[Rfam]
RNA sequence: UCGAAUUAGUGCAAAAUACGCGCCUCACUAAAUGAGAACAAAAAAACCGACGUUAAACGCGUCGGUUAUUUUUUUGC
Numbered sequence: 001u002c003g004a005a006u007u008a009g010u011g012c013a014a015a016a017u018a019c020g021c022g023c024c025u026c027a028c029u030a031a032a033u034g035a036g037a038a039c040a041a042a043a044a045a046a047c048c049g050a051c052g053u054u055a056a057a058c059g060c061g062u063c064g065g066u067u068a069u070u071u072u073u074u075u076g077c
Base pairs, nucleotide, nucleotide: 011021012020045067046066047065048064049063050062051061052060
Notes: The family of this 77-nucleotide RNA from Buttiauxella agrestis is "Enterobacterial sRNA STnc240". The match comes from Rfam's covariance-model search (68 bits). Rfam classes the family as a small RNA. Pairs were carried over by alignment from the consensus structure, which was predicted with WAR.